This 78-nucleotide sequence from Tauraco erythrolophus belongs to the Rfam family "Small nucleolar RNA SNORD74". Pairs were carried over by alignment from the consensus structure, which was predicted with PFOLD. Rfam classes the family as a C/D-box small nucleolar RNA.

RNA sequence: UGUGCCUGCGCGUGAUGAAAACUGUGUUGGUAGGGACAUCUGAGAGGGUGAUGAAUGCCAACAUAUCUGAGCGGCGCA
Numbered sequence: 001u002g003u004g005c006c007u008g009c010g011c012g013u014g015a016u017g018a019a020a021a022c023u024g025u026g027u028u029g030g031u032a033g034g035g036a037c038a039u040c041u042g043a044g045a046g047g048g049u050g051a052u053g054a055a056u057g058c059c060a061a062c063a064u065a066u067c068u069g070a071g072c073g074g075c076g077c078a
Stems, first nucleotide, its partner, number of pairs: 001078005